[Rfam]
RNA: c-di-AMP riboswitch aptamer (ydaO/yuaA leader)
Organism: Paenibacillus xerothermodurans
RNA sequence: GAAAUAAGCAGGCCGAAGCUUCUCGUGAGAAGCGCGGGGGAUCCCAGUUCUUGGGGUGAAGCCAUUGUCAUAUGGCCGGGCGAUUGCUCUUUGACCCGAACCCGUCAGCUAACCUCGUAGGCCGUAAUAAAGAGAGGA
Numbered sequence: 001g002a003a004a005u006a007a008g009c010a011g012g013c014c015g016a017a018g019c020u021u022c023u024c025g026u027g028a029g030a031a032g033c034g035c036g037g038g039g040g041a042u043c044c045c046a047g048u049u050c051u052u053g054g055g056g057u058g059a060a061g062c063c064a065u066u067g068u069c070a071u072a073u074g075g076c077c078g079g080g081c082g083a084u085u086g087c088u089c090u091u092u093g094a095c096c097c098g099a100a101c102c103c104g105u106c107a108g109c110u111a112a113c114c115u116c117g118u119a120g121g122c123c124g125u126a127a128u129a130a131a132g133a134g135a136g137g138a
Base pairs, nucleotide, nucleotide: 011123012122013121014120018033019032020031021030022029023028034118035117036116037115038114039113044053054103055102056101062075063074064073065072078097079096080095